[Rfam]
RNA sequence: AGAGUUGGUUAGACAAUCGCUGGUUUAUUGAAGCCCUCAAGUUUGUAAUGGCACAAAUUUGCAAUUGCAUAAUCUAGGGGACAAGUAAACGAGAGGAAAGUCCGAGCUACAUAGGGCAGAGUGCCAGAUAACGUCUGGGCAGCGUGAGCUGACGACAAGUGCAACAGAGAGCAGACCGCCUUUUUUAUAAAGGUAAGGGUGAAAGGGUGUGGUAAGAGCACACCGUGUGACUGGUAACAGUUCACAGCAAGGUAAACUCCACUCGUAGCAAGACCAAAUAGGAAUUCAAUGAGUGGCCCGCUCAGAAUUCGGGUAGGUUGCUUGAGCGUAAUAGUAAUGUUACGCCUAGAGGAAUGAUUGUCCACGACAGAACUCGGCUUAUCGACCAACUCGUCCU
Numbered sequence: 001a002g003a004g005u006u007g008g009u010u011a012g013a014c015a016a017u018c019g020c021u022g023g024u025u026u027a028u029u030g031a032a033g034c035c036c037u038c039a040a041g042u043u044u045g046u047a048a049u050g051g052c053a054c055a056a057a058u059u060u061g062c063a064a065u066u067g068c069a070u071a072a073u074c075u076a077g078g079g080g081a082c083a084a085g086u087a088a089a090c091g092a093g094a095g096g097a098a099a100g101u102c103c104g105a106g107c108u109a110c111a112u113a114g115g116g117c118a119g120a121g122u123g124c125c126a127g128a129u130a131a132c133g134u135c136u137g138g139g140c141a142g143c144g145u146g147a148g149c150u151g152a153c154g155a156c157a158a159g160u161g162c163a164a165c166a167g168a169g170a171g172c173a174g175a176c177c178g179c180c181u182u183u184u185u186u187a188u189a190a191a192g193g194u195a196a197g198g199g200u201g202a203a204a205g206g207g208u209g210u211g212g213u214a215a216g217a218g219c220a221c222a223c224c225g226u227g228u229g230a231c232u233g234g235u236a237a238c239a240g241u242u243c244a245c246a247g248c249a250a251g252g253u254a255a256a257c258u259c260c261a262c263u264c265g266u267a268g269c270a271a272g273a274c275c276a277a278a279u280a281g282g283a284a285u286u287c288a289a290u291g292a293g294u295g296g297c298c299c300g301c302u303c304a305g306a307a308u309u310c311g312g313g314u315a316g317g318u319u320g321c322u323u324g325a326g327c328g329u330a331a332u333a334g335u336a337a338u339g340u341u342a343c344g345c346c347u348a349g350a351g352g353a354a355u356g357a358u359u360g361u362c363c364a365c366g367a368c369a370g371a372a373c374u375c376g377g378c379u380u381a382u383c384g385a386c387c388a389a390c391u392c393g394u395c396c397u
Base pairs, nucleotide, nucleotide: 002392003391004390005389006388007387008386009385010384011382012362013361014360015359016358017357018356020093021092023090024089025088026087027086028085098380099379100378102377103376104375105374106373107268108267109266110265114299115298116297117296119264120263121262122261123260124138125137126136127135128134139153140151141150142149143148154259155258159257160256161253162252176198177197178194179193180192181191182190183189206224207223208222209221210220211219225248226246227245228244229243230242231240232239233238272319273318274317275316282310283309284308285307286306287305290304291303292302293301294300326345327344328343329342330341331340332339333338

Source information
The record is a 397-nucleotide sequence from Nicoletella semolina, which matches "Bacterial RNase P class A" in Rfam. Rfam describes the family as follows. Ribonuclease P (RNase P) is a ubiquitous endoribonuclease, found in archaea, bacteria and eukarya as well as chloroplasts and mitochondria. The base pairs follow the family's consensus structure, which is taken from published work. NCBI's taxonomy places the organism under Bacteria, Pseudomonadati, Pasteurellales, Pasteurellaceae, Nicoletella. Rfam links the family to the GO terms dimeric ribonuclease P complex, ribonuclease P activity and tRNA processing. The family's RNA type in Rfam is ribozyme.